[Rfam]
RNA sequence: AGAAAAGAAUACGGUAUCAUCCAUAUAAUCUGGGGAAUAUGGCCCUAGAGUCUCUACCGGGCAGCCGUAAACUGCCCGACUAUGGAUGAGUCAAUAGGUUAU
Numbered sequence: 001a002g003a004a005a006a007g008a009a010u011a012c013g014g015u016a017u018c019a020u021c022c023a024u025a026u027a028a029u030c031u032g033g034g035g036a037a038u039a040u041g042g043c044c045c046u047a048g049a050g051u052c053u054c055u056a057c058c059g060g061g062c063a064g065c066c067g068u069a070a071a072c073u074g075c076c077c078g079a080c081u082a083u084g085g086a087u088g089a090g091u092c093a094a095u096a097g098g099u100u101a102u
Base pairs, nucleotide, nucleotide: 018088019087020086021085022084023083024082025081029049030048031047032046033045034044035043058078059077060076061075062074063073064072
The record is a 102-nucleotide sequence from Caloramator australicus, which matches "Purine riboswitch aptamer" in Rfam. Its family is annotated with purine nucleobase biosynthetic process in the Gene Ontology. The match comes from Rfam's covariance-model search (95 bits). The family has 133 seed sequences and 4,097 matches in Rfam 15.1. About the family: Riboswitches are metabolite binding domains within certain messenger RNAs that serve as precision sensors for their corresponding targets.